[Rfam]
RNA: SAM/SAH riboswitch aptamer
Organism: Actibacterium naphthalenivorans
RNA sequence: UUACCGUCACAACGGCUUCCUGGCGUGGCGGGUAUUUUCACAAUGGAGCA
Numbered sequence: 001u002u003a004c005c006g007u008c009a010c011a012a013c014g015g016c017u018u019c020c021u022g023g024c025g026u027g028g029c030g031g032g033u034a035u036u037u038u039c040a041c042a043a044u045g046g047a048g049c050a
Base pairs, nucleotide, nucleotide: 004032005031006029007028008027009026010025013022014021015049016048017047019046020045